[Rfam]
RNA sequence: AUUGUCUGAGCGGAACAGUUCUCUAGUACGAGAGGAACGGGAAUUGGGUGCCUCUGGUCUAUCGGUUGUCAUGUGGCAGGCCGAGCAGCUACGCACCAUUUCGAUAAAUGCUGAAAGCAUCUAAGCAUGAAGCGAAUCGCAAAACGAGACAAUUAAGGCCGUCAUAGAAGAUGACGUCGAUAGAGGUGUGGUGUACGCAUGAAGCUUCGGCGACAUGUUCAGCCAGCAUCUACUAAAAGCCUCAAAU
Numbered sequence: 001a002u003u004g005u006c007u008g009a010g011c012g013g014a015a016c017a018g019u020u021c022u023c024u025a026g027u028a029c030g031a032g033a034g035g036a037a038c039g040g041g042a043a044u045u046g047g048g049u050g051c052c053u054c055u056g057g058u059c060u061a062u063c064g065g066u067u068g069u070c071a072u073g074u075g076g077c078a079g080g081c082c083g084a085g086c087a088g089c090u091a092c093g094c095a096c097c098a099u100u101u102c103g104a105u106a107a108a109u110g111c112u113g114a115a116a117g118c119a120u121c122u123a124a125g126c127a128u129g130a131a132g133c134g135a136a137u138c139g140c141a142a143a144a145c146g147a148g149a150c151a152a153u154u155a156a157g158g159c160c161g162u163c164a165u166a167g168a169a170g171a172u173g174a175c176g177u178c179g180a181u182a183g184a185g186g187u188g189u190g191g192u193g194u195a196c197g198c199a200u201g202a203a204g205c206u207u208c209g210g211c212g213a214c215a216u217g218u219u220c221a222g223c224c225a226g227c228a229u230c231u232a233c234u235a236a237a238a239g240c241c242u243c244a245a246a247u
Stems, first nucleotide, its partner, number of pairs: 001153007010140004016046008047097005055091003062084005067078004101135003108128005156242004160176005181235003184231005189225003197218005204211001